[Rfam]
RNA sequence: UGGGACAGUCUGUAAAGCUCAGGAGGGAUAGCGCCAUGGAUGAUAAUGGGUUUGUGGAUUCAUGGUGUUUUAAGAUUUUUGAUCAUCAGUAGCGCUAUCCAUCCUGAGUUUCAUAGGCUCUUCUU
Numbered sequence: 001u002g003g004g005a006c007a008g009u010c011u012g013u014a015a016a017g018c019u020c021a022g023g024a025g026g027g028a029u030a031g032c033g034c035c036a037u038g039g040a041u042g043a044u045a046a047u048g049g050g051u052u053u054g055u056g057g058a059u060u061c062a063u064g065g066u067g068u069u070u071u072a073a074g075a076u077u078u079u080u081g082a083u084c085a086u087c088a089g090u091a092g093c094g095c096u097a098u099c100c101a102u103c104c105u106g107a108g109u110u111u112c113a114u115a116g117g118c119u120c121u122u123c124u125u
Stems, first nucleotide, its partner, number of pairs: 010116001016110009026100009
RNA: MIR390 microRNA precursor family